[Rfam]
RNA: 6S-Flavo RNA
Organism: Costertonia aggregata
RNA sequence: ACUCAACACUAAUUUGUUUAAGAAGGGUGAGUUUAGGUCGUAAAAGCAAGCCUUGCCCGUACAAGGAUCCUUGAUCGGUCUGUUAGCCCUAAACCUGUUUAUUGGAGUUU
Numbered sequence: 001a002c003u004c005a006a007c008a009c010u011a012a013u014u015u016g017u018u019u020a021a022g023a024a025g026g027g028u029g030a031g032u033u034u035a036g037g038u039c040g041u042a043a044a045a046g047c048a049a050g051c052c053u054u055g056c057c058c059g060u061a062c063a064a065g066g067a068u069c070c071u072u073g074a075u076c077g078g079u080c081u082g083u084u085a086g087c088c089c090u091a092a093a094c095c096u097g098u099u100u101a102u103u104g105g106a107g108u109u110u
Stems, first nucleotide, its partner, number of pairs: 024090005035081005044072003051066004